Rfam assigns this 79-nucleotide RNA sequence from Phascolarctos cinereus to the family "mir-26 microRNA precursor family". The organism belongs to Phascolarctos, within Eukaryota.

RNA sequence: CUACAGCCAGGUUCAAGUAAUCCAGGAUAGGCUGUGUCCAGCUGCUGGCCUAUUCUUGAUUACUUGUUUCUGGAGGCAG
Numbered sequence: 001c002u003a004c005a006g007c008c009a010g011g012u013u014c015a016a017g018u019a020a021u022c023c024a025g026g027a028u029a030g031g032c033u034g035u036g037u038c039c040a041g042c043u044g045c046u047g048g049c050c051u052a053u054u055c056u057u058g059a060u061u062a063c064u065u066g067u068u069u070c071u072g073g074a075g076g077c078a079g
Base pairs, nucleotide, nucleotide: 002078004076007073008072009071010070011069014066015065016064017063018062019061020060021059022058024056025055026054027053028052029051030050031049032048033047
The family's consensus secondary structure was predicted with RNAalifold. Its family is annotated with miRNA-mediated post-transcriptional gene silencing and RISC complex in the Gene Ontology. The family has 82 seed sequences and 2,251 matches in Rfam 15.1.